The family of this 81-nucleotide RNA sequence is "ZMP/ZTP riboswitch aptamer (pfl RNA motif)". Rfam 15.1 lists 3,295 matches to the family in 2,545 species. Gene Ontology terms of the family: regulation of purine nucleotide biosynthetic process and one-carbon metabolic process. Pairs were carried over by alignment from the consensus structure, which is taken from published work.

Nucleotides: 081
Stems, first nucleotide, its partner, number of pairs: 006049007015040002017069005024037004060074003
Number, partner (000 for none) and nucleotide at each position: 001000a002000g003000g004000c005000a006049g007048u008047u009046a010045u011044a012043c013000g014000a015040c016039u017069g018068a019067c020066g021065g022000a023000a024037g025036u026035g027034g028000a029000a030000a031000u032000g033000a034027c035026c036025a037024c038000a039016g040015g041000g042000a043012g044011u045010a046009u047008a048007g049006c050000g051000u052000g053000a054000g055000a056000a057000g058000a059000g060074g061073c062072c063000g064000a065021c066020c067019g068018u069017c070000u071000g072062g073061g074060c075000a076000g077000a078000a079000g080000a081000a